RNA sequence: UAUAUUUGCAGCCUUCGAAAUAAACUCGAAGUUGCAUAAAAAUCAUUUACAAUAAUAUUGGCAUG
Number, nucleotide and partner (000 for none) at each position: 001u000002a000003u000004a000005u000006u000007u000008g000009c000010a000011g000012c000013c000014u030015u029016c028017g027018a026019a000020a000021u000022a000023a000024a000025c000026u018027c017028g016029a015030a014031g000032u000033u000034g000035c000036a000037u000038a000039a000040a000041a000042a000043u000044c000045a000046u000047u000048u000049a000050c000051a000052a000053u000054a000055a000056u000057a000058u000059u000060g000061g000062c000063a000064u000065g000
Background: Shown here is a 65-nucleotide RNA, a member of the family "S15-Flavobacteria ribosomal protein leader". The family's consensus secondary structure is taken from published work.